About this RNA:
Shown here is a 115-nucleotide RNA sequence, a member of the family "DUF3800-I RNA". Actinobacteria, Firmicutes, Fusobacteria, Proteobacteria (1 example), Tenericutes (2 examples). The family's consensus secondary structure is taken from published work. The family's RNA type in Rfam is small RNA. It is one of the family's seed sequences.
[Rfam]
RNA sequence: UAAUAUUGCAGGUAGGAAUACGCUGUAUACUCAUGAAACCGAAUUAGCGUUUAAGCGACAUGUGUUGUCGUCGGACAUGAGGGAGCCACCUUUCGAGGUGGCUUUUGAAUUAUUU
Numbered sequence: 001u002a003a004u005a006u007u008g009c010a011g012g013u014a015g016g017a018a019u020a021c022g023c024u025g026u027a028u029a030c031u032c033a034u035g036a037a038a039c040c041g042a043a044u045u046a047g048c049g050u051u052u053a054a055g056c057g058a059c060a061u062g063u064g065u066u067g068u069c070g071u072c073g074g075a076c077a078u079g080a081g082g083g084a085g086c087c088a089c090c091u092u093u094c095g096a097g098g099u100g101g102c103u104u105u106u107g108a109a110u111u112a113u114u115u
Base pairs, nucleotide, nucleotide: 007027008026009025010024011023012021013020014019030081031080032079033078034077035076039074040073041072042051043050044049055071056070057069058068059067060066082105083104084103085102086101087100088099089098090097091096